[Rfam]
RNA sequence: CCCCGGGCGGAAGCCCGGGGCUAUGUUCUGUCGCUCCUUUGGAGCU
Numbered sequence: 001c002c003c004c005g006g007g008c009g010g011a012a013g014c015c016c017g018g019g020g021c022u023a024u025g026u027u028c029u030g031u032c033g034c035u036c037c038u039u040u041g042g043a044g045c046u
Stems, first nucleotide, its partner, number of pairs: 001020008033045005

A member of the RNA family "Acido-Lenti-1 RNA" from Rhodohalobacter barkolensis, 46 nucleotides long.
Pairs were carried over by alignment from the consensus structure, which is taken from published work.
The family has 87 seed sequences and 2,607 matches in Rfam 15.1.
It is annotated as a small RNA.